[Rfam]
RNA: c-di-GMP-I riboswitch aptamer
Organism: Bacillus safensis
Nucleotides: 094
Stems, first nucleotide, its partner, number of pairs: 012037002017032006040088004045084002048078002054073004
Number, partner (000 for none) and nucleotide at each position: 001000a002000g003000a004000a005000g006000a007000a008000a009000a010000a011000g012037g013036c014000a015000a016000a017032u018031c019030u020029a021028u022027g023000g024000a025000a026000a027022c028021a029020u030019a031018g032017a033000g034000a035000c036013g037012c038000a039000a040088a041087g042086c043085c044000a045084u046083g047000u048078c049077c050000u051000a052000a053000g054073g055072u056071a057070a058000a059000u060000g061000a062000u063000u064000c065000u066000u067000u068000u069000u070057u071056u072055g073054c074000u075000a076000a077049g078048g079000u080000c081000g082000g083046c084045a085043g086042g087041c088040u089000a090000c091000c092000g093000a094000a